[Rfam]
Nucleotides: 055
Base pairs, nucleotide, nucleotide: 005026006025007024009020010019036055037054038053039052040051041050042049
Number, partner (000 for none) and nucleotide at each position: 001000g002000g003000g004000u005026g006025u007024c008000c009020g010019c011000a012000c013000u014000g015000u016000u017000g018000u019010g020009c021000u022000u023000u024007g025006g026005c027000a028000g029000g030000u031000c032000a033000u034000a035000g036055c037054g038053c039052u040051g041050g042049u043000c044000g045000g046000g047000c048000c049042g050041c051040c052039a053038g054037c055036g

The record is a 55-nucleotide sequence, which matches "nhaA-I RNA" in Rfam. From the family's description: Acidobacteria, Alphaproteobacteria, Betaproteobacteria and Gammaproteobacteria, Verrucomicrobia, cand. division NC10. The base pairs follow the family's consensus structure, which is taken from published work. Rfam's curators put it in the seed alignment.